RNA sequence: CACACACGAAGGUCAGGUUUGAUCCGGGAGAAAUCCGGACGGACCACCGGUGGCGGGAAACCGCUUUUUGCCUUCGUGGAGGUUCAACCGGAAAGGAAAAAC
Number, nucleotide and partner (000 for none) at each position: 001c081002a000003c079004a000005c078006a077007c076008g075009a074010a073011g000012g071013u000014c000015a000016g045017g044018u000019u000020u000021g000022a000023u000024c000025c037026g036027g000028g035029a000030g000031a000032a000033a000034u000035c028036c026037g025038g000039a000040c000041g000042g000043a000044c017045c016046a000047c000048c000049g000050g000051u000052g065053g064054c063055g062056g061057g000058a000059a000060a000061c056062c055063g054064c053065u052066u000067u000068u000069u000070g000071c012072c000073u010074u009075c008076g007077u006078g005079g003080a000081g001082g000083u000084u000085c000086a000087a000088c000089c000090g000091g000092a000093a000094a000095g000096g000097a000098a000099a000100a000101a000102c000
This 102-nucleotide RNA sequence from Oricola cellulosilytica belongs to the Rfam family "rpsB sRNA". It is annotated as a small RNA. It scores 42 bits against the family's covariance model.